RNA sequence: ACAGGGGGGGAGACGAGGGGUCGGAAUCCAAAGGACGCAGACCACCUUUGGUUACGGACCCCUUUCUCCCCCCCUUC
Numbered sequence: 001a002c003a004g005g006g007g008g009g010g011a012g013a014c015g016a017g018g019g020g021u022c023g024g025a026a027u028c029c030a031a032a033g034g035a036c037g038c039a040g041a042c043c044a045c046c047u048u049u050g051g052u053u054a055c056g057g058a059c060c061c062c063u064u065u066c067u068c069c070c071c072c073c074c075u076u077c
Base pairs, nucleotide, nucleotide: 005073006072007071008070009069010068011067012066013065015064016063017062018061019060020059021058022057024055026053028051029050030049031048032047033046034045

About this RNA: Shown here is a 77-nucleotide RNA from Simplexvirus humanalpha2, a member of the family "mir-H20 microRNA precursor family". The family is grouped with related families in Rfam's "mir-H microRNA precursor clan". The family has 2 seed sequences and 4 matches in Rfam 15.1. Lineage of the source: Viruses > Herviviricetes > Herpesvirales > Orthoherpesviridae > Simplexvirus humanalpha2.